The record is a 107-nucleotide RNA from Bacillus sp. SJS, which matches "BsrF" in Rfam.
It scores 91 bits against the family's covariance model.
It is annotated as a small RNA.
The source organism's lineage runs through Bacteria, Bacillati, Caryophanales, Bacillaceae and Bacillus.
RNA sequence: GCGAUGAGCUGAGUUGCAUAAGUCGGGGGACGCACCUUUUAGGUACAAACGAUGUGGCGUUUGGUCCCUCGCCGCAAUACGCAAAGGCACCUGAUGAUUCAGGUGCC
Numbered sequence: 001g002c003g004a005u006g007a008g009c010u011g012a013g014u015u016g017c018a019u020a021a022g023u024c025g026g027g028g029g030a031c032g033c034a035c036c037u038u039u040u041a042g043g044u045a046c047a048a049a050c051g052a053u054g055u056g057g058c059g060u061u062u063g064g065u066c067c068c069u070c071g072c073c074g075c076a077a078u079a080c081g082c083a084a085a086g087g088c089a090c091c092u093g094a095u096g097a098u099u100c101a102g103g104u105g106c107c
Stems, first nucleotide, its partner, number of pairs: 014077004024071008034044002046063002049060003086107009